RNA sequence: AGAUAUUUUUAGCACACUAUUCGAAAGGAUAGGCCGCAAAGCUUAGAGUCUACGGUAAUACAUAUUGGUUACUAAGAUCGUCUGGUUGCACAU
Dot-bracket structure: ...........((...((((((....))))))...))..((((.((((((....((((..........))))...)))..)))))))......
Numbered sequence: 001a002g003a004u005a006u007u008u009u010u011a012g013c014a015c016a017c018u019a020u021u022c023g024a025a026a027g028g029a030u031a032g033g034c035c036g037c038a039a040a041g042c043u044u045a046g047a048g049u050c051u052a053c054g055g056u057a058a059u060a061c062a063u064a065u066u067g068g069u070u071a072c073u074a075a076g077a078u079c080g081u082c083u084g085g086u087u088g089c090a091c092a093u
Stems, first nucleotide, its partner, number of pairs: 012037002017032006040087004045083003048078003055072004
c-di-GMP-I riboswitch aptamer: a 93-nucleotide RNA sequence from Bacillus cereus.
GEMM was predicted in a large-scale screen for bacterial structured RNA regulatory elements.
The organism belongs to Bacillus cereus, within Bacteria.
The family's consensus secondary structure is taken from published work.
The match comes from Rfam's covariance-model search (58 bits).